Shown here is a 165-nucleotide RNA from Desulfocicer vacuolatum, a member of the family "Group II catalytic intron D1-D4-3".
RNA sequence: GGAACCGUCUAAAGGAAGUUGGAGCGCAAAACUAUGAGCCGACGAACAGAAACAGCAUAUAAGGCCUGGUCUCCGGGUAAGCCAGCACAACAUGUCAAAGCCCAGGAUUCAGGAGACAGGGUUAAAGCAUGUUAAGCGGCCGCAUUGCAAAAUCACGGUGCUGAC
Numbered sequence: 001g002g003a004a005c006c007g008u009c010u011a012a013a014g015g016a017a018g019u020u021g022g023a024g025c026g027c028a029a030a031a032c033u034a035u036g037a038g039c040c041g042a043c044g045a046a047c048a049g050a051a052a053c054a055g056c057a058u059a060u061a062a063g064g065c066c067u068g069g070u071c072u073c074c075g076g077g078u079a080a081g082c083c084a085g086c087a088c089a090a091c092a093u094g095u096c097a098a099a100g101c102c103c104a105g106g107a108u109u110c111a112g113g114a115g116a117c118a119g120g121g122u123u124a125a126a127g128c129a130u131g132u133u134a135a136g137c138g139g140c141c142g143c144a145u146u147g148c149a150a151a152a153u154c155a156c157g158g159u160g161c162u163g164a165c
Base pairs, nucleotide, nucleotide: 018165019164020163021162022161027157032147034145035144036143038140039139040138041137053136054133055132056131057130058129064122065121066120069117070116071115072114073113074112075103076102077101078100081096083094084093
Dot-bracket structure: .................(((((....(....(.(((.((((...........((((((.....(((..((((((((((..(.((........)).)...))))........))))))..)))......)))))..)))))..))).).........)...)))))

Record summary: The organism belongs to Desulfocicer vacuolatum, within Bacteria. It scores 71 bits against the family's covariance model. The base pairs follow the family's consensus structure.